[Rfam]
RNA sequence: UGGUAGAUGCACCCUGAUAAUUCCCCCUGAAGCUCACGGUUCGGGGGAUUUUUUU
Numbered sequence: 001u002g003g004u005a006g007a008u009g010c011a012c013c014c015u016g017a018u019a020a021u022u023c024c025c026c027c028u029g030a031a032g033c034u035c036a037c038g039g040u041u042c043g044g045g046g047g048a049u050u051u052u053u054u055u
Stems, first nucleotide, its partner, number of pairs: 002013003024047008033038001
RNA: Nitrogen stress-induced RNA 1
Organism: Moorena producens